[Rfam]
Description:
Shown here is a 102-nucleotide sequence from Clostridium gasigenes, a member of the family "Purine riboswitch aptamer". Riboswitches are metabolite binding domains within certain messenger RNAs that serve as precision sensors for their corresponding targets. The source organism's lineage runs through Bacteria, Bacillati, Bacillota, Clostridia and Clostridium. Pairs were carried over by alignment from the consensus structure, which is taken from published work.
RNA sequence: AAAAAUAAGUUUCAAAUUAUUCGUAUAUGCUUGGAAAUAUGGUUCAAGCGUUUCUACUGGGAAGCCAAAAACAUCCUAACUACGAAUAUAUAAUUAAGGUUU
Numbered sequence: 001a002a003a004a005a006u007a008a009g010u011u012u013c014a015a016a017u018u019a020u021u022c023g024u025a026u027a028u029g030c031u032u033g034g035a036a037a038u039a040u041g042g043u044u045c046a047a048g049c050g051u052u053u054c055u056a057c058u059g060g061g062a063a064g065c066c067a068a069a070a071a072c073a074u075c076c077u078a079a080c081u082a083c084g085a086a087u088a089u090a091u092a093a094u095u096a097a098g099g100u101u102u
Stems, first nucleotide, its partner, number of pairs: 018088008029049007058078005064072001